[Rfam]
RNA sequence: AAGGGUAUAGUUUAAUUGGUAAAACAGUUGACUUCAAAUCAAUAUAGUGAUAGUUCAAUUCUGUCUGCCCUUG
Numbered sequence: 001a002a003g004g005g006u007a008u009a010g011u012u013u014a015a016u017u018g019g020u021a022a023a024a025c026a027g028u029u030g031a032c033u034u035c036a037a038a039u040c041a042a043u044a045u046a047g048u049g050a051u052a053g054u055u056c057a058a059u060u061c062u063g064u065c066u067g068c069c070c071u072u073g
Stems, first nucleotide, its partner, number of pairs: 001072007010025004027043005049065005
RNA: tRNA
Organism: Wickerhamomyces canadensis